[Rfam]
Small Cajal body specific RNA 1: a 166-nucleotide RNA from Gadus morhua.
Its family is annotated with nucleolus, RNA processing and Cajal body in the Gene Ontology.
The literature on the family includes a 2002 paper in EMBO J by Darzacq et al., "Cajal body-specific small nuclear RNAs: a novel class of 2'-O-methylation and pseudouridylation guide RNAs".
By type it is a small Cajal body RNA.
scaRNAs are a specific class of small nuclear RNAs which localise to the Cajal bodies and guide the modification of RNA polymerase II transcribed spliceosomal RNAs U1, U2, U4, U5 and U12.
The organism belongs to Gadus, within Eukaryota.
A search with the family's covariance model found it, with a score of 49 bits.

RNA sequence: UUGCACCAGAUACAAACUAGUAGUCAUCGUGGUGAAACAAUUUGUGUUUCACUGUGAAAACCUUUGGCUACCUCGUUACAAAAUGGUGCAACAGGAAUAUGAGCCCUGAUAUUUAAGCUUCUCAGUGGAAAGUGACACUGUUGAGUUAUGGACCAGAGGCACAGAU
Numbered sequence: 001u002u003g004c005a006c007c008a009g010a011u012a013c014a015a016a017c018u019a020g021u022a023g024u025c026a027u028c029g030u031g032g033u034g035a036a037a038c039a040a041u042u043u044g045u046g047u048u049u050c051a052c053u054g055u056g057a058a059a060a061c062c063u064u065u066g067g068c069u070a071c072c073u074c075g076u077u078a079c080a081a082a083a084u085g086g087u088g089c090a091a092c093a094g095g096a097a098u099a100u101g102a103g104c105c106c107u108g109a110u111a112u113u114u115a116a117g118c119u120u121c122u123c124a125g126u127g128g129a130a131a132g133u134g135a136c137a138c139u140g141u142u143g144a145g146u147u148a149u150g151g152a153c154c155a156g157a158g159g160c161a162c163a164g165a166u
Base pairs, nucleotide, nucleotide: 003089004088005087006086007085008084015077016076017075019073020071021070022069023068024067025066027057028056029055030054031053032052034050035049036048037047038046039045103160104159105158123140124139125138126137127136141156142155143154146151